[Rfam]
RNA sequence: UGAUACAUUGACCUUCUCUGCCCAGUUCUUCCAGGAGUCAGGAAAAGCUGGGUUGAGAGAGAAAAGCUGGUUGAGA
Numbered sequence: 001u002g003a004u005a006c007a008u009u010g011a012c013c014u015u016c017u018c019u020g021c022c023c024a025g026u027u028c029u030u031c032c033a034g035g036a037g038u039c040a041g042g043a044a045a046a047g048c049u050g051g052g053u054u055g056a057g058a059g060a061g062a063a064a065a066g067c068u069g070g071u072u073g074a075g076a
Base pairs, nucleotide, nucleotide: 014059015058016057017056018055021052022051023050024049025048029044030043031042032041034039
RNA: mir-320 microRNA precursor family